[Rfam]
RNA sequence: GGGUCCGUCACGGUUUCGACAGGUUGGCGAACGCUACUCUGUGAUUCAGGUCGAGAGCGAGUCAUCUCUCGGAAAUCAAAGGCUCGAAAAAAAAGUAAAUGCGAACAAUAUCGUAAAAUUUGCUCGUCGGGAAGCUCUAGUAGCUGCCUAAACGCCUCUUAUAGGUUCGAGCGUCUUCAGUUUGACUCCGUUAAGGACUAAAGACACAACCCCCAACGGAUGCUCUAGUAAGCGUUCUCUGGUUGGCUUGCUAGCUAAGAUUAAAUCAGAGCAUCCUACGUUCGGGAUAAUGAACGAUUCCCGCCUUGAGGGUCAGAAAGGCUAAACCUGUGAAUGAGCGGGGGGUCAAUACCCAAUUUGGACAGCAGUUCGACUCUGCUCGGAUCCACUG
Numbered sequence: 001g002g003g004u005c006c007g008u009c010a011c012g013g014u015u016u017c018g019a020c021a022g023g024u025u026g027g028c029g030a031a032c033g034c035u036a037c038u039c040u041g042u043g044a045u046u047c048a049g050g051u052c053g054a055g056a057g058c059g060a061g062u063c064a065u066c067u068c069u070c071g072g073a074a075a076u077c078a079a080a081g082g083c084u085c086g087a088a089a090a091a092a093a094a095g096u097a098a099a100u101g102c103g104a105a106c107a108a109u110a111u112c113g114u115a116a117a118a119u120u121u122g123c124u125c126g127u128c129g130g131g132a133a134g135c136u137c138u139a140g141u142a143g144c145u146g147c148c149u150a151a152a153c154g155c156c157u158c159u160u161a162u163a164g165g166u167u168c169g170a171g172c173g174u175c176u177u178c179a180g181u182u183u184g185a186c187u188c189c190g191u192u193a194a195g196g197a198c199u200a201a202a203g204a205c206a207c208a209a210c211c212c213c214c215a216a217c218g219g220a221u222g223c224u225c226u227a228g229u230a231a232g233c234g235u236u237c238u239c240u241g242g243u244u245g246g247c248u249u250g251c252u253a254g255c256u257a258a259g260a261u262u263a264a265a266u267c268a269g270a271g272c273a274u275c276c277u278a279c280g281u282u283c284g285g286g287a288u289a290a291u292g293a294a295c296g297a298u299u300c301c302c303g304c305c306u307u308g309a310g311g312g313u314c315a316g317a318a319a320g321g322c323u324a325a326a327c328c329u330g331u332g333a334a335u336g337a338g339c340g341g342g343g344g345g346u347c348a349a350u351a352c353c354c355a356a357u358u359u360g361g362a363c364a365g366c367a368g369u370u371c372g373a374c375u376c377u378g379c380u381c382g383g384a385u386c387c388a389c390u391g
Stems, first nucleotide, its partner, number of pairs: 001387007020360008034345002037342003042337001044335003047330005052071005058086006138161003142157002173205005179199004187219002191216002225254008243269002273313005280306001284302003292322001298317002364380005